About this RNA: Shown here is a 170-nucleotide RNA sequence from Mustela putorius, a member of the family "TUC338".
RNA sequence: UUGAAGGCGUGGAGACUGAAGUCCUCUCUCUCCCCACAGAACAGGUAUGGCACAGACAGUGGCAUUGCAGCCUGCCACUGUCCACCAAUGUGCCUCAGUGCUAGCAGAGGGGCACCGUGUGCAGGGGAAGAGGGCGAUUCAGUCUCCAUGCCCUUCAAUCUUGGGUGACU
Numbered sequence: 001u002u003g004a005a006g007g008c009g010u011g012g013a014g015a016c017u018g019a020a021g022u023c024c025u026c027u028c029u030c031u032c033c034c035c036a037c038a039g040a041a042c043a044g045g046u047a048u049g050g051c052a053c054a055g056a057c058a059g060u061g062g063c064a065u066u067g068c069a070g071c072c073u074g075c076c077a078c079u080g081u082c083c084a085c086c087a088a089u090g091u092g093c094c095u096c097a098g099u100g101c102u103a104g105c106a107g108a109g110g111g112g113c114a115c116c117g118u119g120u121g122c123a124g125g126g127g128a129a130g131a132g133g134g135c136g137a138u139u140c141a142g143u144c145u146c147c148a149u150g151c152c153c154u155u156c157a158a159u160c161u162u163g164g165g166u167g168a169c170u
Base pairs, nucleotide, nucleotide: 002157003156004155006152007151010148011147012146013145014144015143016142017141018140019139020138023133024132025131026130027129029128030127031126033125034124038102039101041099047095050093051092052091053090054089061082062081063080064079104122105121106120108118110116

About this RNA:
Rfam classes the family as a cis-regulatory element. For this family Rfam cites "Expression and functional role of a transcribed noncoding RNA with an ultraconserved element in hepatocellular carcinoma" (Braconi et al., Proc Natl Acad Sci U S A, 2011).